[Rfam]
RNA sequence: UCCCAAUGAGGAGACUUGCACUUGUCUUACUGCCUGUUCUGGUGCCAGAACCUGCAAAGGUUGAACCCACUGGUGCCGGCAGCCGGAGAGGAGGAUGACCCGUUCUAGCUGGAACUGUCUGAUGGGAC
Numbered sequence: 001u002c003c004c005a006a007u008g009a010g011g012a013g014a015c016u017u018g019c020a021c022u023u024g025u026c027u028u029a030c031u032g033c034c035u036g037u038u039c040u041g042g043u044g045c046c047a048g049a050a051c052c053u054g055c056a057a058a059g060g061u062u063g064a065a066c067c068c069a070c071u072g073g074u075g076c077c078g079g080c081a082g083c084c085g086g087a088g089a090g091g092a093g094g095a096u097g098a099c100c101c102g103u104u105c106u107a108g109c110u111g112g113a114a115c116u117g118u119c120u121g122a123u124g125g126g127a128c
Base pairs, nucleotide, nucleotide: 001127002126003125004124